[Rfam]
RNA sequence: AUGAGGGUGACCGAGUGUGGGGAGGAAGCGUGGAGCGAAACCGCGGGCCGAUGAACAAGAACCGGAUACGAGGCGAUGCCGAGCAGGGCGAGCGGGCAACGAACCGCAAAGCUCUCGUGGUCAAAGCGAGGUAGCGUAAAUCCGGCGGUCGUGCGGGGAAGGAUCGCGUUC
Numbered sequence: 001a002u003g004a005g006g007g008u009g010a011c012c013g014a015g016u017g018u019g020g021g022g023a024g025g026a027a028g029c030g031u032g033g034a035g036c037g038a039a040a041c042c043g044c045g046g047g048c049c050g051a052u053g054a055a056c057a058a059g060a061a062c063c064g065g066a067u068a069c070g071a072g073g074c075g076a077u078g079c080c081g082a083g084c085a086g087g088g089c090g091a092g093c094g095g096g097c098a099a100c101g102a103a104c105c106g107c108a109a110a111g112c113u114c115u116c117g118u119g120g121u122c123a124a125a126g127c128g129a130g131g132u133a134g135c136g137u138a139a140a141u142c143c144g145g146c147g148g149u150c151g152u153g154c155g156g157g158g159a160a161g162g163a164u165c166g167c168g169u170u171c
Stems, first nucleotide, its partner, number of pairs: 001016002005012002028171001030169003036162001041156005046150005062145006073137003077133004083127001086114004092107004
Shown here is a 171-nucleotide RNA sequence from Pseudothauera lacus, a member of the family "Group II catalytic intron D1-D4-3". Pairs were carried over by alignment from the consensus structure. Group II introns are found in rRNA, tRNA and mRNA of organelles in fungi, plants and protists, and also in mRNA in bacteria. A search with the family's covariance model found it, with a score of 113 bits. Taxonomically the source falls in Pseudothauera (Bacteria, Pseudomonadati, Pseudomonadota, Zoogloeaceae).